The record is a 97-nucleotide RNA, which matches "pemK RNA" in Rfam.
RNA sequence: ACAAUGGUACUUCUGUCCAGCCACAGCCCCGGGUGGAACCGGGAUCACGCAAUGGGGGCAGCUGCGGGAGAUCCCCGCGGGGGUGAGAGACCCAUGG
Numbered sequence: 001a002c003a004a005u006g007g008u009a010c011u012u013c014u015g016u017c018c019a020g021c022c023a024c025a026g027c028c029c030c031g032g033g034u035g036g037a038a039c040c041g042g043g044a045u046c047a048c049g050c051a052a053u054g055g056g057g058g059c060a061g062c063u064g065c066g067g068g069a070g071a072u073c074c075c076c077g078c079g080g081g082g083g084u085g086a087g088a089g090a091c092c093c094a095u096g097g
Base pairs, nucleotide, nucleotide: 012094013061014060015059016058017057018056062080063079064078066076067075068074081093082092083091